[Rfam]
RNA sequence: AAUUAAGUGAAGCUGAAUCUGAGGUACAAAGCCUCAGAACGGGGGAAACGUCACGUGGGGUGAAUCGCAGGAUAUUGCGUAGGGCAUACACCUUUUGCCCGAAUCCGUCAACUAACCUCGUAAGCAGGAAAGGUGGUCAAA
Numbered sequence: 001a002a003u004u005a006a007g008u009g010a011a012g013c014u015g016a017a018u019c020u021g022a023g024g025u026a027c028a029a030a031g032c033c034u035c036a037g038a039a040c041g042g043g044g045g046a047a048a049c050g051u052c053a054c055g056u057g058g059g060g061u062g063a064a065u066c067g068c069a070g071g072a073u074a075u076u077g078c079g080u081a082g083g084g085c086a087u088a089c090a091c092c093u094u095u096u097g098c099c100c101g102a103a104u105c106c107g108u109c110a111a112c113u114a115a116c117c118u119c120g121u122a123a124g125c126a127g128g129a130a131a132g133g134u135g136g137u138c139a140a141a
Base pairs, nucleotide, nucleotide: 012125013124014123018038019037020036021035022034023033024032039121040120041119042118043117044116049057050056058106059105060104066079067078068077069076082100083099084098085097
RNA: c-di-AMP riboswitch aptamer (ydaO/yuaA leader)